Shown here is a 92-nucleotide RNA from Malonomonas rubra, a member of the family "c-di-GMP-I-GGC riboswitch aptamer". For this family Rfam cites "Bioinformatic analysis of riboswitch structures uncovers variant classes with altered ligand specificity" (Weinberg et al., Proc Natl Acad Sci U S A, 2017). The match comes from Rfam's covariance-model search (67 bits).

RNA sequence: CUAGAUAAAGCCAAACCUGUCGUGAGAUGGGGACGGAAAGCUGCGGGUCUUAUUAUUCUUCAAAGAACUAGAAGAUAGCCGGGUUGCCAAAU
Numbered sequence: 001c002u003a004g005a006u007a008a009a010g011c012c013a014a015a016c017c018u019g020u021c022g023u024g025a026g027a028u029g030g031g032g033a034c035g036g037a038a039a040g041c042u043g044c045g046g047g048u049c050u051u052a053u054u055a056u057u058c059u060u061c062a063a064a065g066a067a068c069u070a071g072a073a074g075a076u077a078g079c080c081g082g083g084u085u086g087c088c089a090a091a092u
Stems, first nucleotide, its partner, number of pairs: 004088001011036002016031006034078001039085004044081003047076005